Rfam assigns this 125-nucleotide RNA sequence from Panicum hallii to the family "Small nucleolar RNA snoR111". Its family is annotated with RNA processing and nucleolus in the Gene Ontology. On this family, see Marker et al., Curr Biol 2002: "Experimental RNomics: identification of 140 candidates for small non-messenger RNAs in the plant Arabidopsis thaliana". The family has 6 seed sequences and 533 matches in Rfam 15.1. By type it is an H/ACA-box small nucleolar RNA. The family's consensus secondary structure was predicted with WAR.
RNA sequence: GUGACGGGGGCACGAACACCUUCCGUGCGCCGCCGUCUUCUCAAGGAGGGGAUAGAUCCACGCGUCAAGAAAUCGUUUCAGUUGCCAUGGCUCCAGUAGGCAAUAUGAUUGUUGCUUGACUACAG
Numbered sequence: 001g002u003g004a005c006g007g008g009g010g011c012a013c014g015a016a017c018a019c020c021u022u023c024c025g026u027g028c029g030c031c032g033c034c035g036u037c038u039u040c041u042c043a044a045g046g047a048g049g050g051g052a053u054a055g056a057u058c059c060a061c062g063c064g065u066c067a068a069g070a071a072a073u074c075g076u077u078u079c080a081g082u083u084g085c086c087a088u089g090g091c092u093c094c095a096g097u098a099g100g101c102a103a104u105a106u107g108a109u110u111g112u113u114g115c116u117u118g119a120c121u122a123c124a125g
Base pairs, nucleotide, nucleotide: 003037004036005035006034007033009030010028011027012026013025014024064120066118067117068116069115072109073108074107075106081104082103083102084101085100086099
Dot-bracket structure: ..(((((.((((((.........))))).)..)))))..........................(.((((..((((.....((((((............)))))).)))).....)))).).....